[Rfam]
RNA sequence: AAAUUAAAUAAUCUCCGAACAACUGUGUCUAAGGAUUAAUGAAAUGUCUAUGAUGCUUUUGUCAAGCAAUAUUUUGUAUUAAGUUUGCGUAACAUGAGAUAAAUAUUGCUUCAGGGUUCUAUGGGAAACCAUGCAGCCUUCCGUCUUUGAAAAGGAGUAUUAUUUAAAUUAAA
Number, nucleotide and partner (000 for none) at each position: 001a000002a000003a000004u166005u000006a164007a000008a000009u000010a000011a000012u000013c157014u156015c155016c154017g000018a000019a062020c061021a060022a059023c000024u000025g056026u055027g054028u053029c052030u000031a000032a000033g049034g048035a047036u046037u000038a000039a000040u000041g000042a000043a000044a000045u000046g036047u035048c034049u033050a000051u000052g029053a028054u027055g026056c025057u000058u000059u022060u021061g020062u019063c000064a111065a110066g109067c108068a107069a106070u105071a104072u103073u102074u101075u000076g000077u000078a000079u000080u000081a000082a000083g000084u000085u000086u000087g000088c000089g000090u000091a000092a000093c000094a000095u000096g000097a000098g000099a000100u000101a074102a073103a072104u071105a070106u069107u068108g067109c066110u065111u064112c000113a000114g139115g138116g137117u136118u135119c000120u133121a132122u131123g130124g129125g000126a000127a000128a000129c124130c123131a122132u121133g120134c000135a118136g117137c116138c115139u114140u150141c149142c000143g000144u000145c000146u000147u000148u000149g141150a140151a000152a000153a000154g016155g015156a014157g013158u000159a000160u000161u000162a000163u000164u006165u000166a004167a000168a000169u000170u000171a000172a000173a000
A member of the RNA family "Molybdenum/Tungsten riboswitch aptamer (Moco RNA motif)" from Clostridium sp. SM-530-WT-3G, 173 nucleotides long. Lineage of the source: Bacteria > Bacillati > Eubacteriales > Clostridiaceae > Clostridium. The family has 160 seed sequences and 1,248 matches in Rfam 15.1.